[Rfam]
RNA sequence: UGAUGUAGAUAUUAUUUGGUGUGUUGGUAAGCACUGGAUAAAGGAGCCUUAGAAGGGUUGUGUGAACACCUCAAACCAGUGCUGAAAACACUCAUA
Numbered sequence: 001u002g003a004u005g006u007a008g009a010u011a012u013u014a015u016u017u018g019g020u021g022u023g024u025u026g027g028u029a030a031g032c033a034c035u036g037g038a039u040a041a042a043g044g045a046g047c048c049u050u051a052g053a054a055g056g057g058u059u060g061u062g063u064g065a066a067c068a069c070c071u072c073a074a075a076c077c078a079g080u081g082c083u084g085a086a087a088a089c090a091c092u093c094a095u096a
Base pairs, nucleotide, nucleotide: 002048004046012041013040014039015038016037017036018035019034020033021032022031024079025078026077027076062091063090064089
Overview:
The family of this 96-nucleotide sequence from Bombilactobacillus apium is "drum RNA". About the family: Firmicutes, Bacteroidetes (1 example), Proteobacteria (2 examples), Spirochaetes (2 examples). The family's RNA type in Rfam is small RNA. The match comes from Rfam's covariance-model search (52 bits). Lineage of the source: Bacteria > Bacillati > Lactobacillales > Lactobacillaceae > Bombilactobacillus.